[Rfam]
RNA sequence: UAGUAAAUAGGCGAUGACGUUCGCCUUCAACCGCUGUACUAGAAUCAGCUAAUAACGUCUACCUUGAU
Numbered sequence: 001u002a003g004u005a006a007a008u009a010g011g012c013g014a015u016g017a018c019g020u021u022c023g024c025c026u027u028c029a030a031c032c033g034c035u036g037u038a039c040u041a042g043a044a045u046c047a048g049c050u051a052a053u054a055a056c057g058u059c060u061a062c063c064u065u066g067a068u
Base pairs, nucleotide, nucleotide: 010025011024012023013022016059017058018057019056020055021054033049034048035047036046
RNA: Fluoride riboswitch aptamer (crcB RNA motif)
Organism: Sporolactobacillus laevolacticus